[Rfam]
RNA sequence: CCUGCCCCAGCUCGUGUUGCAGGCGUGGCUGCACUGCCACGUUUGUGUCAUUCAGUGGCAGAGAGCAAAAGGCAAGGUCUUCCCUUGGUACUCUGACCCAUGUGGGCUCCCAGGAUUGCUCAACAUACU
Numbered sequence: 001c002c003u004g005c006c007c008c009a010g011c012u013c014g015u016g017u018u019g020c021a022g023g024c025g026u027g028g029c030u031g032c033a034c035u036g037c038c039a040c041g042u043u044u045g046u047g048u049c050a051u052u053c054a055g056u057g058g059c060a061g062a063g064a065g066c067a068a069a070a071g072g073c074a075a076g077g078u079c080u081u082c083c084c085u086u087g088g089u090a091c092u093c094u095g096a097c098c099c100a101u102g103u104g105g106g107c108u109c110c111c112a113g114g115a116u117u118g119c120u121c122a123a124c125a126u127a128c129u
Base pairs, nucleotide, nucleotide: 002061003060004059005058006057007055010052014048015047019046020045021044022043024041025040026039027038028037029036069126071124075120076119081115082114083113087109088108089106091104093102
A member of the RNA family "Small nucleolar RNA SNORA17" from Formicarius rufipectus, 129 nucleotides long. Rfam classes the family as an H/ACA-box small nucleolar RNA. Taxonomically the source falls in Formicarius (Eukaryota, Sauria, Neognathae, Neoaves). The base pairs follow the family's consensus structure, which was predicted with RNAalifold. The family is grouped with related families in Rfam's "SNORA17 clan". For this family Rfam cites "Mapping to nucleotide resolution of pseudouridine residues in large subunit ribosomal RNAs from representative eukaryotes, prokaryotes, archaebacteria, mitochondria and chloroplasts" (Ofengand and Bakin, J Mol Biol, 1997). Rfam's curators write: snoRNA ACA 17 belongs to the H/ACA family of snoRNAs and is predicted to guide pseudouridylation of the 28S rRNA at positions U4659 and U4598. It shares the same host gene together with ACA43. NB This family has a high threshold value to exclude a large number of closely related sequences that do not appear to have conserved H and ACA boxes, and may be pseudogenes. The match comes from Rfam's covariance-model search (58 bits).